A member of the RNA family "Selenocysteine insertion sequence 1" from Anabas testudineus, 66 nucleotides long. It is annotated as a cis-regulatory element. A search with the family's covariance model found it, with a score of 37 bits. The organism belongs to Anabas, within Eukaryota.
RNA sequence: CUGGCGUUCAUGAAGGUCGGGUCCUAAAGCAGGGUCUGCAGGGCCUGGCUGGAUGUUUCCCGCCAC
Numbered sequence: 001c002u003g004g005c006g007u008u009c010a011u012g013a014a015g016g017u018c019g020g021g022u023c024c025u026a027a028a029g030c031a032g033g034g035u036c037u038g039c040a041g042g043g044c045c046u047g048g049c050u051g052g053a054u055g056u057u058u059c060c061c062g063c064c065a066c
Stems, first nucleotide, its partner, number of pairs: 002065004015050010030038003